Annotation:
This 76-nucleotide sequence from Mumia sp. ZJ1417 belongs to the Rfam family "Actino-pnp RNA". It is annotated as a cis-regulatory element. The match comes from Rfam's covariance-model search (53 bits). The family's consensus secondary structure is taken from published work.

Nucleotides: 076
Base pairs, nucleotide, nucleotide: 002075003074004073005072006071007070009068010067011066012065013064017060018059020057021056022055023054024053025052026051028048
Number, partner (000 for none) and nucleotide at each position: 001000c002075u003074c004073g005072g006071u007070c008000c009068u010067c011066g012065g013064u014000a015000g016000u017060g018059g019000c020057u021056u022055g023054c024053g025052g026051a027000u028048g029000g030000c031000g032000g033000c034000g035000u036000a037000c038000g039000a040000g041000a042000c043000g044000c045000u046000c047000g048028c049000a050000c051026u052025u053024c054023g055022c056021g057020g058000a059018c060017c061000u062000c063000g064013a065012u066011c067010g068009a069000a070007g071006a072005c073004c074003g075002g076000c